RNA sequence: GAUUACAGCUAAAAAAGUCGUGAACAUAAAAGUUGUAGAACUCAUCAAGGCCUACAACUUUUAUUUUGGUCAUUUCUUCAUCCGACAAAGUGAUAGUAAUAUUGUUCACAAAAUUUACAUAUAUCUCUUAUAGUUUAUGAAACCAUAUGAGGGAUAUGUAAAUUUUGUGAACAAUGAUGCUUCCACUUUGUCGGAUGAAUAAAUGACCAAAAUAAAAGUUGUAGAUCUUGAUGAGUUCUACACCUUUGUUAUUUGAUGACUUUUUCAGCUGAAAUC
Numbered sequence: 001g002a003u004u005a006c007a008g009c010u011a012a013a014a015a016a017g018u019c020g021u022g023a024a025c026a027u028a029a030a031a032g033u034u035g036u037a038g039a040a041c042u043c044a045u046c047a048a049g050g051c052c053u054a055c056a057a058c059u060u061u062u063a064u065u066u067u068g069g070u071c072a073u074u075u076c077u078u079c080a081u082c083c084g085a086c087a088a089a090g091u092g093a094u095a096g097u098a099a100u101a102u103u104g105u106u107c108a109c110a111a112a113a114u115u116u117a118c119a120u121a122u123a124u125c126u127c128u129u130a131u132a133g134u135u136u137a138u139g140a141a142a143c144c145a146u147a148u149g150a151g152g153g154a155u156a157u158g159u160a161a162a163u164u165u166u167g168u169g170a171a172c173a174a175u176g177a178u179g180c181u182u183c184c185a186c187u188u189u190g191u192c193g194g195a196u197g198a199a200u201a202a203a204u205g206a207c208c209a210a211a212a213u214a215a216a217a218g219u220u221g222u223a224g225a226u227c228u229u230g231a232u233g234a235g236u237u238c239u240a241c242a243c244c245u246u247u248g249u250u251a252u253u254u255g256a257u258g259a260c261u262u263u264u265u266c267a268g269c270u271g272a273a274a275u276c
Base pairs, nucleotide, nucleotide: 014263015262016261017260018259019258020257021256023253024252026250030246031245032244034242035241036240037239038238039237040236041235042234044232045231046230047229048228049227050226052224053223055221056220057219058218059217060216061215062214063213064212065211066210067209069207070206071205072204073203074202075201077199078198079197080196081195083193084192085191086190087189088188089187090186091185092184095181096180097179098178101175102174103173104172105171106170107169108168109167110166111165112164114162115161117159118158119157120156121155122154131145133143134142135141136140